[Rfam]
RNA sequence: GGGUUACUCCUUGGCGCUCACGCGCUGGUUUAAUAAAGAUUCGCACCUCUAUCAAACCGGGUAACCCCACCCUUUGGCAAGGCCUUACUGUCGGAUCAAGUCUGAACUAUUACACAUCAGCGCAUCCGGCAAUGACUCGUAACCCUAACUGGCUGUAACCGCCACACCGGCCCGAGCCUUAUGCAAUUUUUUGUAGCUGUCG
Numbered sequence: 001g002g003g004u005u006a007c008u009c010c011u012u013g014g015c016g017c018u019c020a021c022g023c024g025c026u027g028g029u030u031u032a033a034u035a036a037a038g039a040u041u042c043g044c045a046c047c048u049c050u051a052u053c054a055a056a057c058c059g060g061g062u063a064a065c066c067c068c069a070c071c072c073u074u075u076g077g078c079a080a081g082g083c084c085u086u087a088c089u090g091u092c093g094g095a096u097c098a099a100g101u102c103u104g105a106a107c108u109a110u111u112a113c114a115c116a117u118c119a120g121c122g123c124a125u126c127c128g129g130c131a132a133u134g135a136c137u138c139g140u141a142a143c144c145c146u147a148a149c150u151g152g153c154u155g156u157a158a159c160c161g162c163c164a165c166a167c168c169g170g171c172c173c174g175a176g177c178c179u180u181a182u183g184c185a186a187u188u189u190u191u192u193g194u195a196g197c198u199g200u201c202g
Base pairs, nucleotide, nucleotide: 001067002066003065004064005063006062007061009060010059014025015024016023017022027058028057029056030055031054033052034051035050037048038047075169076168077167081162085158086157090107091106092104093103094102095101096100109154111152114150